Notes: The family of this 111-nucleotide RNA sequence is "atpB RNA". It is annotated as a cis-regulatory element. Rfam's curators put it in the seed alignment.
[Rfam]
RNA sequence: CUGUCUUGUUCAUGCUGAUGUGCGACGGAGUCCGUGAACAGGACAGAAAGUUUGAGACGUCCAUCGCACCACAAAAGCUUUUACAAGCUGUGUGGCCCGAACACGGGAGAG
Numbered sequence: 001c002u003g004u005c006u007u008g009u010u011c012a013u014g015c016u017g018a019u020g021u022g023c024g025a026c027g028g029a030g031u032c033c034g035u036g037a038a039c040a041g042g043a044c045a046g047a048a049a050g051u052u053u054g055a056g057a058c059g060u061c062c063a064u065c066g067c068a069c070c071a072c073a074a075a076a077g078c079u080u081u082u083a084c085a086a087g088c089u090g091u092g093u094g095g096c097c098c099g100a101a102c103a104c105g106g107g108a109g110a111g
Stems, first nucleotide, its partner, number of pairs: 001046012069095005076089005
Dot-bracket structure: ((((((((((((......................))))))))))))......................(((((..(((((....))))).)))))................